Background: Shown here is a 169-nucleotide sequence from Enterococcus hirae, a member of the family "M-box riboswitch aptamer (ykoK leader)". Rfam describes the family as follows. M-box riboswitch, also know as ykoK leader is described as a metaloregulatory RNA that sense divalent metals and function as a genetic control element of genes related to divalent metal transport in bacteria. It was first reported upstream of the B.subtilis ykoK gene and genes with related functions in other bacteria. For this family Rfam cites "New RNA motifs suggest an expanded scope for riboswitches in bacterial genetic control" (Barrick et al., Proc Natl Acad Sci U S A, 2004). Gene Ontology terms of the family: regulation of gene expression and response to magnesium ion.
RNA sequence: UCUUCAAAUAGUUAGGUGAGGCUUCUAUGUAAACAUAAGCUACUGCCCAAAAAUGUCGAGAGACGCCAAUGGGUAGAACAGGGAUUGUCGAUAGCAAGGCUUUUCUUAAGGUAGCUAAGUGCAAACUUUACGUUGCAUAGUGCCAAAGCUCAAACGUGACGUAAGUCAA
Dot-bracket structure: ....(..((.(([.(((..(((..((((((((......(((((.(((((....((((....))))....)))))......((((..(((.......])))..))))....))))).(((......)))....)))))))).)))...)))...)).....))..)....
Numbered sequence: 001u002c003u004u005c006a007a008a009u010a011g012u013u014a015g016g017u018g019a020g021g022c023u024u025c026u027a028u029g030u031a032a033a034c035a036u037a038a039g040c041u042a043c044u045g046c047c048c049a050a051a052a053a054u055g056u057c058g059a060g061a062g063a064c065g066c067c068a069a070u071g072g073g074u075a076g077a078a079c080a081g082g083g084a085u086u087g088u089c090g091a092u093a094g095c096a097a098g099g100c101u102u103u104u105c106u107u108a109a110g111g112u113a114g115c116u117a118a119g120u121g122c123a124a125a126c127u128u129u130a131c132g133u134u135g136c137a138u139a140g141u142g143c144c145a146a147a148g149c150u151c152a153a154a155c156g157u158g159a160c161g162u163a164a165g166u167c168a169a
Stems, first nucleotide, its partner, number of pairs: 005165001008162002011155002013097001015150003020144003025140008039115005045074005054065004081106004087100003117128003